[Rfam]
Nucleotides: 072
Base pairs, nucleotide, nucleotide: 002070004068005067007065010062011061012060015057016056017055020052021051022050024048025047026046027045029043
Number, partner (000 for none) and nucleotide at each position: 001000u002070g003000u004068c005067g006000u007065a008000a009000a010062c011061c012060c013000g014000u015057a016056g017055a018000u019000c020052c021051g022050a023000u024048c025047u026046u027045g028000u029043g030000g031000c032000a033000a034000a035000u036000c037000u038000g039000g040000u041000a042000a043029c044000c045027c046026a047025a048024g049000c050022u051021c052020g053000c054000u055017u056016c057015u058000g059000u060012g061011g062010g063000u064000c065007u066000c067005u068004g069000u070002c071000a072000c

Rfam assigns this 72-nucleotide RNA sequence from Pangasianodon hypophthalmus to the family "mir-10 microRNA precursor family".
On this family, see Ambros, Cell 2001: "microRNAs: tiny regulators with great potential".
NCBI's taxonomy places the organism under Eukaryota, Metazoa, Bilateria, Osteoglossocephalai, Pangasianodon.
The match comes from Rfam's covariance-model search (50 bits).
Gene Ontology terms of the family: RISC complex and miRNA-mediated post-transcriptional gene silencing.